[Rfam]
RNA sequence: GCGGUUCCGGUUCCCGCCCCCAGGCUGGCAGAGGCGACCCGGCGACC
Numbered sequence: 001g002c003g004g005u006u007c008c009g010g011u012u013c014c015c016g017c018c019c020c021c022a023g024g025c026u027g028g029c030a031g032a033g034g035c036g037a038c039c040c041g042g043c044g045a046c047c
Stems, first nucleotide, its partner, number of pairs: 003047003007042004015036004021031001023029001
This 47-nucleotide RNA from Acrocarpospora corrugata belongs to the Rfam family "L31-Actinobacteria ribosomal protein leader". Taxonomically the source falls in Acrocarpospora (Bacteria, Actinomycetes, Streptosporangiales, Streptosporangiaceae). The base pairs follow the family's consensus structure, which is taken from published work.